The family of this 72-nucleotide RNA sequence from Pan troglodytes is "mir-622 microRNA precursor family". Its family is annotated with miRNA-mediated post-transcriptional gene silencing and RISC complex in the Gene Ontology. A search with the family's covariance model found it, with a score of 94 bits.
[Rfam]
Nucleotides: 072
Base pairs, nucleotide, nucleotide: 003070004069005068007066008065009064010063011062012061013060014059015058016057017056019054020053021052022051023050025046026045028043029042031040032039033038
Number, partner (000 for none) and nucleotide at each position: 001000c002000a003070a004069g005068u006000a007066c008065u009064g010063g011062u012061c013060u014059c015058a016057g017056u018000a019054g020053a021052u022051u023050g024000a025046g026045g027000a028043g029042a030000g031040c032039a033038c034000c035000a036000c037000a038033g039032u040031g041000g042029u043028c044000a045026c046025c047000a048000u049000g050023c051022a052021g053020u054019c055000c056017a057016c058015u059014g060013a061012g062011g063010u064009u065008g066007g067000a068005a069004c070003u071000g072000c
Pairs were carried over by alignment from the consensus structure, which was predicted with RNAalifold. The source organism's lineage runs through Eukaryota, Craniata, Gnathostomata, Theria and Pan.